The family of this 140-nucleotide RNA from Kribbella amoyensis is "SAM riboswitch aptamer (S box leader)". The base pairs follow the family's consensus structure, which is taken from published work. Taxonomically the source falls in Kribbella (Bacteria, Bacillati, Actinomycetes, Propionibacteriales).
RNA sequence: UGCUCAUCCAGAGGGACUGAGGGAAACGGCCCGUUGACGUCCCGGCAACCCUCCCCGUGGAGGUCUCUCCCGAGACGCUCGCGAGGGACCGGUGCCAAAUCCGUCCCGCGCCGAGAUCCGGCGACCGGGGAAGAUGAGGG
Dot-bracket structure: (.((((((....(((((...(((..[[[[)))......)))))((((.((.((((.............................))))..))))))...(]]]]((((.................))))..))))))).)